The family of this 160-nucleotide RNA from Conexibacter woesei is "c-di-AMP riboswitch aptamer (ydaO/yuaA leader)".
A search with the family's covariance model found it, with a score of 77 bits.
The source organism's lineage runs through Bacteria, Bacillati, Thermoleophilia, Solirubrobacterales and Conexibacter woesei.
RNA sequence: UCCAUAAGCCUGCCGAGUCCUCCUGCCCGGAGGAGCGGGGAAACCAAUGCGGUGGCGUCCGACGUCGCCGCUGGGGCGAAUCCGAGCACAGGUGCUCGGUAGCGCGGCCCUUUCAGCGCGAGCCCGUCAGCUAACCCCGUAGGCCGUCACGAAAGGGGCA
Numbered sequence: 001u002c003c004a005u006a007a008g009c010c011u012g013c014c015g016a017g018u019c020c021u022c023c024u025g026c027c028c029g030g031a032g033g034a035g036c037g038g039g040g041a042a043a044c045c046a047a048u049g050c051g052g053u054g055g056c057g058u059c060c061g062a063c064g065u066c067g068c069c070g071c072u073g074g075g076g077c078g079a080a081u082c083c084g085a086g087c088a089c090a091g092g093u094g095c096u097c098g099g100u101a102g103c104g105c106g107g108c109c110c111u112u113u114c115a116g117c118g119c120g121a122g123c124c125c126g127u128c129a130g131c132u133a134a135c136c137c138c139g140u141a142g143g144c145c146g147u148c149a150c151g152a153a154a155g156g157g158g159c160a
Stems, first nucleotide, its partner, number of pairs: 012144003018034006035140006045073002074125003082099004102119004